[Rfam]
RNA sequence: UUUUAGCCCUGAUGGAAGUGGAAAUCCUUGCCUUUUUUUGGCAAGAUUGCAACGUACAGCAGGAAUACUG
Numbered sequence: 001u002u003u004u005a006g007c008c009c010u011g012a013u014g015g016a017a018g019u020g021g022a023a024a025u026c027c028u029u030g031c032c033u034u035u036u037u038u039u040g041g042c043a044a045g046a047u048u049g050c051a052a053c054g055u056a057c058a059g060c061a062g063g064a065a066u067a068c069u070g
Base pairs, nucleotide, nucleotide: 009062010061011060013058014057018053019052023048024047025046026045029043030042031041032040
A member of the RNA family "Flavo-1 RNA" from Flavobacterium psychrophilum, 70 nucleotides long. The base pairs follow the family's consensus structure, which is taken from published work.